Shown here is a 302-nucleotide sequence from Danionella cerebrum, a member of the family "Nuclear RNase P".
[Rfam]
RNA sequence: GUGGUAGGAAGUUCACUGUAGAGGUUACAAACGGAGUGUAAGUCACUUGUCGACGUAUCCUCGGGGAAGGUCUGAGACAAAAGCCAAACGCUGUCCUAGCAGGACAUCUUCUAAACGGAAGAGCAAGUGCACAGAAACCACGUGUCACACGAUUGUGUUCAUGCAAAAGAUGCUGAUUUGUCAAAUAGACAUACAGCUGAUGCACACACAGUUGACUUGGAAACACUUGCGGCUGGCGAAAGAGUUCGAUGUGUGAACCAGUACACUGUGCUGGAACCCAAUUCAGACUACUCUCCUACCAC
Numbered sequence: 001g002u003g004g005u006a007g008g009a010a011g012u013u014c015a016c017u018g019u020a021g022a023g024g025u026u027a028c029a030a031a032c033g034g035a036g037u038g039u040a041a042g043u044c045a046c047u048u049g050u051c052g053a054c055g056u057a058u059c060c061u062c063g064g065g066g067a068a069g070g071u072c073u074g075a076g077a078c079a080a081a082a083g084c085c086a087a088a089c090g091c092u093g094u095c096c097u098a099g100c101a102g103g104a105c106a107u108c109u110u111c112u113a114a115a116c117g118g119a120a121g122a123g124c125a126a127g128u129g130c131a132c133a134g135a136a137a138c139c140a141c142g143u144g145u146c147a148c149a150c151g152a153u154u155g156u157g158u159u160c161a162u163g164c165a166a167a168a169g170a171u172g173c174u175g176a177u178u179u180g181u182c183a184a185a186u187a188g189a190c191a192u193a194c195a196g197c198u199g200a201u202g203c204a205c206a207c208a209c210a211g212u213u214g215a216c217u218u219g220g221a222a223a224c225a226c227u228u229g230c231g232g233c234u235g236g237c238g239a240a241a242g243a244g245u246u247c248g249a250u251g252u253g254u255g256a257a258c259c260a261g262u263a264c265a266c267u268g269u270g271c272u273g274g275a276a277c278c279c280a281a282u283u284c285a286g287a288c289u290a291c292u293c294u295c296c297u298a299c300c301a302c
Stems, first nucleotide, its partner, number of pairs: 001302004007296003012257005021062004034048005072286005082234004092106005107122006123230007144216003258274007

The family's RNA type in Rfam is ribozyme. The source organism's lineage runs through Eukaryota, Teleostomi, Neopterygii, Clupeocephala and Danionella. The family's consensus secondary structure is taken from published work.